The record is a 150-nucleotide RNA sequence from Gossypium hirsutum, which matches "MIR8643 microRNA precursor family" in Rfam. The source organism's lineage runs through Eukaryota, Streptophyta, Gunneridae, malvids and Gossypium. Gene Ontology terms of the family: RISC complex and miRNA-mediated post-transcriptional gene silencing. A search with the family's covariance model found it, with a score of 143 bits.
[Rfam]
RNA sequence: AUUUCUUUUAACAUAUUAGGAAGUCGAAUUGACAAUGAAAAAAGAAGUAGGAAGUCGACUUUCAUCAUUUGCCUAUAACCAAAACCCAUAAACCCAUACCAUGCUUCUUUUUUCACUACCAAUUCGACUUCCUGGUAUGUUAAAAGAAAU
Numbered sequence: 001a002u003u004u005c006u007u008u009u010a011a012c013a014u015a016u017u018a019g020g021a022a023g024u025c026g027a028a029u030u031g032a033c034a035a036u037g038a039a040a041a042a043a044g045a046a047g048u049a050g051g052a053a054g055u056c057g058a059c060u061u062u063c064a065u066c067a068u069u070u071g072c073c074u075a076u077a078a079c080c081a082a083a084a085c086c087c088a089u090a091a092a093c094c095c096a097u098a099c100c101a102u103g104c105u106u107c108u109u110u111u112u113u114c115a116c117u118a119c120c121a122a123u124u125c126g127a128c129u130u131c132c133u134g135g136u137a138u139g140u141u142a143a144a145a146g147a148a149a150u
Stems, first nucleotide, its partner, number of pairs: 004147015020131012034117001036115011048103002051100001057095001